[Rfam]
RNA sequence: CAUUGAGGUGAUGAUAUUGUUUUCGGAAUUGCAUUUGCAUUGUGUCGACUUAAAGAAAUUAGACUACAAUUAUCUGAUCAAUG
Numbered sequence: 001c002a003u004u005g006a007g008g009u010g011a012u013g014a015u016a017u018u019g020u021u022u023u024c025g026g027a028a029u030u031g032c033a034u035u036u037g038c039a040u041u042g043u044g045u046c047g048a049c050u051u052a053a054a055g056a057a058a059u060u061a062g063a064c065u066a067c068a069a070u071u072a073u074c075u076g077a078u079c080a081a082u083g
Stems, first nucleotide, its partner, number of pairs: 001083006
About this RNA:
Shown here is an 83-nucleotide RNA sequence from Rhamnella rubrinervis, a member of the family "Small nucleolar RNA Z155". Its family is annotated with nucleolus and RNA processing in the Gene Ontology. Rfam classes the family as a C/D-box small nucleolar RNA. NCBI's taxonomy places the organism under Eukaryota, Euphyllophyta, Rosales, Rhamneae, Rhamnella. The base pairs follow the family's consensus structure.